The record is a 102-nucleotide RNA from Desulfosporosinus orientis, which matches "Purine riboswitch aptamer" in Rfam. Rfam describes the family as follows. Riboswitches are metabolite binding domains within certain messenger RNAs that serve as precision sensors for their corresponding targets. Allosteric rearrangement of mRNA structure is mediated by ligand binding, and this results in modulation of gene expression. A class of riboswitches that selectively recognises guanine and becomes saturated at concentrations as low as 5 nM. In Bacillus subtilis, this mRNA motif is located on at least five separate transcriptional units that together encode 17 genes that are mostly involved in purine transport and purine nucleotide biosynthesis. It has also been shown that some members of this family are specific for adenine instead. NCBI's taxonomy places the organism under Bacteria, Bacillati, Clostridia, Desulfosporosinus, Desulfosporosinus orientis.

[Rfam]
RNA sequence: GGAACAAGUAAAUAUAUAGUUCAUAUAAUAGCAGAGAUAAGGUCUGCAAGUUUCUACCGGGCUACCGUAAAUUGUCCGACUAUGAGCGAAAGUGUACCUAGG
Dot-bracket structure: ..................(((((((...(.(((((.......))))).)........(((((.(.......).)))))..)))))))...............